[Rfam]
Rfam assigns this 92-nucleotide RNA from Apis mellifera to the family "mir-3718 microRNA precursor family". The sequence is in the family's curated seed alignment. The source organism's lineage runs through Eukaryota, Ecdysozoa, Hymenoptera, Apocrita and Apis.

RNA sequence: CCGAUUUACAUUAUCGGAUCAGGAUAGGGUAGGGCAGGGCCAUUUCGGUAUAACCAUUCUGUCCCCUGUCCUGUCCCGAUAGUGAGAAUCGG
Dot-bracket structure: ((((((..((.((((((..(((((.((((...((...((..((......))..))...))...)))).)))))..)))))).))..))))))
Numbered sequence: 001c002c003g004a005u006u007u008a009c010a011u012u013a014u015c016g017g018a019u020c021a022g023g024a025u026a027g028g029g030u031a032g033g034g035c036a037g038g039g040c041c042a043u044u045u046c047g048g049u050a051u052a053a054c055c056a057u058u059c060u061g062u063c064c065c066c067u068g069u070c071c072u073g074u075c076c077c078g079a080u081a082g083u084g085a086g087a088a089u090c091g092g
Stems, first nucleotide, its partner, number of pairs: 001092006009084002012081006020073005026067004033060002038055002042051002